[Rfam]
RNA: msiK RNA
Organism: Nocardioides guangzhouensis
RNA sequence: UCAUCGAGUUCACAACGGAUCGUCCGGCACGUUCCUGCCGGUGAAGGAGAGAU
Numbered sequence: 001u002c003a004u005c006g007a008g009u010u011c012a013c014a015a016c017g018g019a020u021c022g023u024c025c026g027g028c029a030c031g032u033u034c035c036u037g038c039c040g041g042u043g044a045a046g047g048a049g050a051g052a053u
Stems, first nucleotide, its partner, number of pairs: 009045004024041006
Dot-bracket structure: ........((((...........((((((......))))))))))........